[Rfam]
RNA sequence: GUGCAUCCAGUAGGAAUUAAACCUACAAAUUCGCCAAUUGUGAGUUGGACGCUUUAACCAUUCAGCCAUGGUCGA
Numbered sequence: 001g002u003g004c005a006u007c008c009a010g011u012a013g014g015a016a017u018u019a020a021a022c023c024u025a026c027a028a029a030u031u032c033g034c035c036a037a038u039u040g041u042g043a044g045u046u047g048g049a050c051g052c053u054u055u056a057a058c059c060a061u062u063c064a065g066c067c068a069u070g071g072u073c074g075a
Stems, first nucleotide, its partner, number of pairs: 004074001007071002010026005040069003044066006051059001

Plastid-ycf2 5UTR RNA: a 75-nucleotide sequence from Anisodus acutangulus. The match comes from Rfam's covariance-model search (80 bits). Rfam classes the family as a cis-regulatory element. The literature on the family includes a 2023 paper in Plant Commun by Richter et al., "Retrograde signaling in plants: A critical review focusing on the GUN pathway and beyond". Rfam 15.1 lists 3,521 matches to the family in 417 species. From the family's description: Plastid ycf2 is a non-coding RNA (ncRNA) recognised in plastids. It was found in the prime untranslated region (5UTR) of ycf2 genes, it presents a tRNA-like motif which suggests it can be involved in mRNA maturation, particularly involved in defining the precise 5' end of the transcript. The source organism's lineage runs through Eukaryota, Streptophyta, Spermatophyta, Pentapetalae and Anisodus.